Source information:
The family of this 83-nucleotide RNA sequence from Lotus japonicus is "Small nucleolar RNA Z122". The family has 23 seed sequences and 822 matches in Rfam 15.1. The base pairs follow the family's consensus structure, which was predicted with PFOLD. Gene Ontology terms of the family: RNA processing and nucleolus. The family's RNA type in Rfam is C/D-box small nucleolar RNA. It is one of the family's seed sequences. A reference for the family is Qu et al. (1999), "Seven novel methylation guide small nucleolar RNAs are processed from a common polycistronic transcript by Rat1p and RNase III in yeast", Mol Cell Biol.
RNA sequence: UUUGGGAUAUGAUGCUAAAGAUUUUUAACAGAGGCUUUAGCUUUGCUGAAUUAUUGAUAUUUGCACGUCAGUCUGAUCCCAAA
Numbered sequence: 001u002u003u004g005g006g007a008u009a010u011g012a013u014g015c016u017a018a019a020g021a022u023u024u025u026u027a028a029c030a031g032a033g034g035c036u037u038u039a040g041c042u043u044u045g046c047u048g049a050a051u052u053a054u055u056g057a058u059a060u061u062u063g064c065a066c067g068u069c070a071g072u073c074u075g076a077u078c079c080c081a082a083a
Stems, first nucleotide, its partner, number of pairs: 001083007